[Rfam]
RNA sequence: UAUUUGGUUAUGACUACUUCUUGUAUAAGCUCAUUAAUAUGGUUUGAGCGUUUUGACCAGGCAACCUUAAAUUGCCCCAGGCUACAUGAGUAACAAAUCCGAAC
Numbered sequence: 001u002a003u004u005u006g007g008u009u010a011u012g013a014c015u016a017c018u019u020c021u022u023g024u025a026u027a028a029g030c031u032c033a034u035u036a037a038u039a040u041g042g043u044u045u046g047a048g049c050g051u052u053u054u055g056a057c058c059a060g061g062c063a064a065c066c067u068u069a070a071a072u073u074g075c076c077c078c079a080g081g082c083u084a085c086a087u088g089a090g091u092a093a094c095a096a097a098u099c100c101g102a103a104c
Base pairs, nucleotide, nucleotide: 018090019089020088022086023085024084025083029049030048031047032046033045058080060076061075062074063073064072
RNA: Purine riboswitch aptamer